[Rfam]
RNA sequence: AGUCGAGCAGUGAAGACAAAGCAAACUAUUCUUUCGCCUUUUACUAAAGAAUACCGUGUCUUCUCUGUGCUAUUCGGCAUACGCCUAUUUUUGGAAAGGUUUAUUUAACAAAUAAGCCU
Number, nucleotide and partner (000 for none) at each position: 001a000002g000003u077004c076005g075006a074007g000008c067009a066010g065011u000012g063013a062014a061015g060016a059017c058018a057019a000020a000021g000022c000023a000024a000025a000026c000027u053028a052029u051030u050031c049032u048033u047034u046035c000036g000037c000038c000039u000040u000041u000042u000043a000044c000045u000046a034047a033048a032049g031050a030051a029052u028053a027054c000055c000056g000057u018058g017059u016060c015061u014062u013063c012064u000065c010066u009067g008068u000069g000070c000071u000072a000073u000074u006075c005076g004077g003078c000079a000080u000081a000082c000083g000084c000085c000086u000087a000088u000089u000090u000091u000092u000093g000094g000095a119096a000097a000098g118099g117100u116101u115102u114103a113104u000105u000106u000107a000108a000109c000110a000111a000112a000113u103114a102115a101116g100117c099118c098119u095
RNA: U5 spliceosomal RNA